[Rfam]
RNA sequence: AAUAAAAUGAGCGAUGGUGUUCGCUCAAUAAAUUCUUCGGAAUUGAUGACGCCUACUUCACU
Numbered sequence: 001a002a003u004a005a006a007a008u009g010a011g012c013g014a015u016g017g018u019g020u021u022c023g024c025u026c027a028a029u030a031a032a033u034u035c036u037u038c039g040g041a042a043u044u045g046a047u048g049a050c051g052c053c054u055a056c057u058u059c060a061c062u
Stems, first nucleotide, its partner, number of pairs: 010025004016053006
Dot-bracket structure: .........[[[[..((((((]]]]......................)))))).........
The family of this 62-nucleotide sequence from Levilactobacillus bambusae is "Fluoride riboswitch aptamer (crcB RNA motif)". A search with the family's covariance model found it, with a score of 34 bits. Its family is annotated with positive regulation of gene expression and response to fluoride in the Gene Ontology. Taxonomically the source falls in Levilactobacillus (Bacteria, Bacillati, Bacillota, Lactobacillales).